[Rfam]
RNA sequence: ACACGAGAAAGGAGGUGGUCCUAAGUUGUAUUCCAACAGGACUCGUGAGGUGGCUGUCCGCUAGCGGAUGGCGCGCGUAGGGACUUUGAGCAGCGAUACAACCUGAGCCACCUUCGGCUCAUCGCCUGCUUCGCGUGUUGCCUGCUGACGAAUACCAGGCAGUCACCGUGCUCCCGGGGCUUCCGAGCACCGGUCCGGCUCGGGCUCGGACGUUUGACGGCGUCCGAGAGCCGCCCCGGGAGCUCU
Number, nucleotide and partner (000 for none) at each position: 001a000002c000003a000004c000005g000006a000007g000008a000009a000010a000011g000012g000013a000014g058015g057016u056017g055018g054019u053020c000021c000022u000023a000024a000025g000026u000027u000028g000029u000030a000031u000032u000033c000034c000035a000036a000037c000038a000039g000040g000041a000042c000043u000044c000045g000046u000047g000048a000049g000050g000051u000052g000053g019054c018055u017056g016057u015058c014059c150060g149061c000062u147063a146064g145065c144066g000067g142068a000069u140070g139071g138072c137073g136074c135075g134076c133077g132078u000079a000080g000081g000082g000083a000084c000085u000086u000087u000088g000089a000090g000091c000092a000093g000094c000095g000096a000097u000098a000099c000100a000101a000102c000103c000104u000105g000106a000107g000108c000109c000110a000111c000112c000113u000114u000115c000116g000117g000118c000119u000120c000121a000122u000123c000124g000125c000126c000127u000128g000129c000130u000131u000132c077133g076134c075135g074136u073137g072138u071139u070140g069141c000142c067143u000144g065145c064146u063147g062148a000149c060150g059151a000152a000153u000154a000155c000156c000157a000158g000159g000160c000161a000162g000163u000164c000165a000166c000167c000168g245169u000170g243171c242172u241173c240174c239175c238176g237177g236178g235179g234180c233181u000182u000183c203184c202185g201186a200187g199188c198189a000190c000191c000192g000193g000194u000195c000196c000197g000198g188199c187200u186201c185202g184203g183204g000205c000206u000207c000208g000209g000210a000211c000212g000213u000214u000215u000216g000217a000218c000219g000220g000221c000222g000223u000224c000225c000226g000227a000228g000229a000230g000231c000232c000233g180234c179235c178236c177237c176238g175239g174240g173241a172242g171243c170244u000245c168246u000
RNA: Actinobacteria sRNA Ms_IGR-5
Organism: Amycolatopsis sp. FDAARGOS 1241